The family of this 73-nucleotide sequence from Mycoplasma capricolum is "tRNA".

RNA sequence: CGCGGGGUAGAGCAGUUGGUAGCUCGCCGGGCUCAUAACCCGGAGGUCGCAGGUUCGAGUCCUGCCCCCGCAA
Numbered sequence: 001c002g003c004g005g006g007g008u009a010g011a012g013c014a015g016u017u018g019g020u021a022g023c024u025c026g027c028c029g030g031g032c033u034c035a036u037a038a039c040c041c042g043g044a045g046g047u048c049g050c051a052g053g054u055u056c057g058a059g060u061c062c063u064g065c066c067c068c069c070g071c072a073a
Stems, first nucleotide, its partner, number of pairs: 002071006010025004027043005049065005
Dot-bracket structure: .((((((..((((........)))).(((((.......))))).....(((((.......)))))))))))..
The base pairs follow the family's consensus structure, which is taken from published work. The organism belongs to Mycoplasma, within Bacteria.